This 255-nucleotide RNA sequence from Ipomoea nil belongs to the Rfam family "RNase MRP". Rfam describes the family as follows. RNase MRP is an enzymatically active ribonucleoprotein with two distinct roles in eukaryotes. The source organism's lineage runs through Eukaryota, Streptophytina, Spermatophyta, eudicotyledons and Ipomoea. A search with the family's covariance model found it, with a score of 77 bits.
RNA sequence: UGACCGUGGGGCGACGUGAGUGGGUUGGGCCUUUCCGUUAUGGAUUGACCAGGCCCAGGAAAGUCCCCGGGCUGUUUCUGCAGAGAUGCAGGCCCGGAAACGGGUACACUUCACUGUCUGGUGCCCUAUCUCGUUGCGAGAUGGGCUGAGACGAGUGUCGAGCCCAUGGGCCCUAGCUGGAAGUGCGUUGGCUGAUUAACAGUUAUUCACGUGGUCCGUCUGGACUAACUGAACGGGGCUUACGAUCUUACGGUC
Dot-bracket structure: .((((((((((..((((((......(((((((..................)))))))...[[[.[[[[..........((((....)))).(((((....)))))..(((...(((.((...((((.........((.............((....))...))....))))...)).))).)))......................)))))).((((....)))).........]]]]]]]....))))))))))
Numbered sequence: 001u002g003a004c005c006g007u008g009g010g011g012c013g014a015c016g017u018g019a020g021u022g023g024g025u026u027g028g029g030c031c032u033u034u035c036c037g038u039u040a041u042g043g044a045u046u047g048a049c050c051a052g053g054c055c056c057a058g059g060a061a062a063g064u065c066c067c068c069g070g071g072c073u074g075u076u077u078c079u080g081c082a083g084a085g086a087u088g089c090a091g092g093c094c095c096g097g098a099a100a101c102g103g104g105u106a107c108a109c110u111u112c113a114c115u116g117u118c119u120g121g122u123g124c125c126c127u128a129u130c131u132c133g134u135u136g137c138g139a140g141a142u143g144g145g146c147u148g149a150g151a152c153g154a155g156u157g158u159c160g161a162g163c164c165c166a167u168g169g170g171c172c173c174u175a176g177c178u179g180g181a182a183g184u185g186c187g188u189u190g191g192c193u194g195a196u197u198a199a200c201a202g203u204u205a206u207u208c209a210c211g212u213g214g215u216c217c218g219u220c221u222g223g224a225c226u227a228a229c230u231g232a233a234c235g236g237g238g239c240u241u242a243c244g245a246u247c248u249u250a251c252g253g254u255c
Stems, first nucleotide, its partner, number of pairs: 002255010014212006026057007061241003065238004079090004092105005108184003114180003118176002123171004136163002151158002214225004